[Rfam]
RNA sequence: CCUUUCGAGGAGCGUUGCAAGGUCACCCUGACCCCAGGCUCGAAAGUGUCUCCCCUGCAACCGCGCUCACCCGCA
Number, nucleotide and partner (000 for none) at each position: 001c000002c046003u045004u044005u043006c042007g041008a040009g000010g000011a000012g000013c000014g000015u000016u000017g000018c000019a000020a000021g033022g032023u031024c030025a029026c000027c000028c000029u025030g024031a023032c022033c021034c000035c000036a000037g000038g000039c000040u008041c007042g006043a005044a004045a003046g002047u000048g000049u000050c000051u000052c000053c000054c000055c000056u000057g000058c000059a000060a000061c000062c000063g000064c000065g000066c000067u000068c000069a000070c000071c000072c000073g000074c000075a000